[Rfam]
RNA sequence: AGCUGAUGCACAUGGCGGCUUCCUCCCAGUUCCGCCGCAGCAGCUGUUCCCCUCUGGAGGUCCAUGACCUUCACACUUUAUGGGCCGCGGUUUUCCGUCGGCCCUUUUUC
Numbered sequence: 001a002g003c004u005g006a007u008g009c010a011c012a013u014g015g016c017g018g019c020u021u022c023c024u025c026c027c028a029g030u031u032c033c034g035c036c037g038c039a040g041c042a043g044c045u046g047u048u049c050c051c052c053u054c055u056g057g058a059g060g061u062c063c064a065u066g067a068c069c070u071u072c073a074c075a076c077u078u079u080a081u082g083g084g085c086c087g088c089g090g091u092u093u094u095c096c097g098u099c100g101g102c103c104c105u106u107u108u109u110c
Base pairs, nucleotide, nucleotide: 001045002044003043004042005041007039008038009037015035016034017033018032055073056072057071058070059069060068061067082104083103084102085101086100087098088097089096090095

Rfam assigns this 110-nucleotide sequence from Agrobacterium sp. ATCC 31749 to the family "Alphaproteobacterial ar15". For this family Rfam cites "Small RNA-mediated control of the Agrobacterium tumefaciens GABA binding protein" (Wilms et al., Mol Microbiol, 2011). By type it is a small RNA. The family is grouped with related families in Rfam's "suhB sRNA clan". The organism belongs to Agrobacterium, within Bacteria. Rfam's curators put it in the seed alignment. Gene Ontology term of the family: protein binding.